[Rfam]
RNA sequence: AAAAAAGCAAGGCCGAAGCUUCUAUUAGAAGCGCGGGGGAACCAUCCUUCUAUGGGGUGAAGUCACUUACCGUGACAGGGUGCUUGCUCUUUGACCCGAAUCCGUCAGCUAACCUCGCAGGCCAAAAAAAGGAGAGGA
Numbered sequence: 001a002a003a004a005a006a007g008c009a010a011g012g013c014c015g016a017a018g019c020u021u022c023u024a025u026u027a028g029a030a031g032c033g034c035g036g037g038g039g040a041a042c043c044a045u046c047c048u049u050c051u052a053u054g055g056g057g058u059g060a061a062g063u064c065a066c067u068u069a070c071c072g073u074g075a076c077a078g079g080g081u082g083c084u085u086g087c088u089c090u091u092u093g094a095c096c097c098g099a100a101u102c103c104g105u106c107a108g109c110u111a112a113c114c115u116c117g118c119a120g121g122c123c124a125a126a127a128a129a130a131g132g133a134g135a136g137g138a
Base pairs, nucleotide, nucleotide: 011123012122013121014120018032019031020030033118034117035116036115037114038113043054044053055103056102057101063075064074065073066072078097079096080095081094